[Rfam]
RNA sequence: GGGCUUCUGAUGUUAAAUCAACAUUAUAGCAGAUUUCAGUGAGACUUAUCGUCAAUGAUAUGAUUGUUACACAUACCGCAGCCC
Numbered sequence: 001g002g003g004c005u006u007c008u009g010a011u012g013u014u015a016a017a018u019c020a021a022c023a024u025u026a027u028a029g030c031a032g033a034u035u036u037c038a039g040u041g042a043g044a045c046u047u048a049u050c051g052u053c054a055a056u057g058a059u060a061u062g063a064u065u066g067u068u069a070c071a072c073a074u075a076c077c078g079c080a081g082c083c084c
Base pairs, nucleotide, nucleotide: 001084002083003082004081005080
RNA: Small nucleolar RNA R11/Z151